[Rfam]
Rfam assigns this 63-nucleotide sequence from Candidatus Paraburkholderia kirkii to the family "Betaproteobacteria toxic small RNA". Overexpression in amino aid rich medium attenuates growth, suggesting role in repressing amino acid intake and metabolism. Taxonomically the source falls in Candidatus Paraburkholderia kirkii (Bacteria, Pseudomonadota, Burkholderiales, Burkholderiaceae).

RNA sequence: UGUAUCCUUCACUUGCUCAUUUGGUGGAUUAAGCCCGAGCCUCAGUUGCUCGGGCUUUUUUGU
Numbered sequence: 001u002g003u004a005u006c007c008u009u010c011a012c013u014u015g016c017u018c019a020u021u022u023g024g025u026g027g028a029u030u031a032a033g034c035c036c037g038a039g040c041c042u043c044a045g046u047u048g049c050u051c052g053g054g055c056u057u058u059u060u061u062g063u
Stems, first nucleotide, its partner, number of pairs: 008028006032056008
The base pairs follow the family's consensus structure, which was predicted with WAR.